[Rfam]
RNA sequence: GACAGAGUAGGUAAAGAGCGUCAAGUGUUAAGGGAUGGGAAGUUGCCCUUAAACGAAAGAAACGCAUUCUGCGAUUCUUUACCGCGUCCGCUGAG
Numbered sequence: 001g002a003c004a005g006a007g008u009a010g011g012u013a014a015a016g017a018g019c020g021u022c023a024a025g026u027g028u029u030a031a032g033g034g035a036u037g038g039g040a041a042g043u044u045g046c047c048c049u050u051a052a053a054c055g056a057a058a059g060a061a062a063c064g065c066a067u068u069c070u071g072c073g074a075u076u077c078u079u080u081a082c083c084g085c086g087u088c089c090g091c092u093g094a095g
Stems, first nucleotide, its partner, number of pairs: 003093003010083009019073003025054002028052007038089003042085001058070004
Rfam assigns this 95-nucleotide sequence from Paratissierella segnis to the family "THF (Tetrahydrofolate) riboswitch aptamer". Rfam's curators write: Tetrahydrofolate (THF) riboswitch was first reported for Ames et al. as an RNA motif in 5' untranslated (5'-UTR)regions of folate transport and biosynthesis genes in Firmicutes genomes. It scores 76 bits against the family's covariance model. Pairs were carried over by alignment from the consensus structure, which is taken from published work. A reference for the family is Ames et al. (2010), "A eubacterial riboswitch class that senses the coenzyme tetrahydrofolate", Chem Biol. Rfam 15.1 lists 747 matches to the family in 747 species.